[Rfam]
RNA sequence: GACUCGCGUCUUACCUGGACAAUAUUAGAAGCUGCGAUCUGUCUAAUACUGUCAGGUAAUGAUGCUAGUC
Dot-bracket structure: ((((.((((((((((((..((.(((((((............))))))).)).))))))).))))).))))
Numbered sequence: 001g002a003c004u005c006g007c008g009u010c011u012u013a014c015c016u017g018g019a020c021a022a023u024a025u026u027a028g029a030a031g032c033u034g035c036g037a038u039c040u041g042u043c044u045a046a047u048a049c050u051g052u053c054a055g056g057u058a059a060u061g062a063u064g065c066u067a068g069u070c
Stems, first nucleotide, its partner, number of pairs: 001070004006065005011059007020051002023048007
A member of the RNA family "mir-236 microRNA precursor family" from Ancylostoma ceylanicum, 70 nucleotides long. Its family is annotated with RISC complex and miRNA-mediated post-transcriptional gene silencing in the Gene Ontology. Pairs were carried over by alignment from the consensus structure, which was predicted with RNAalifold.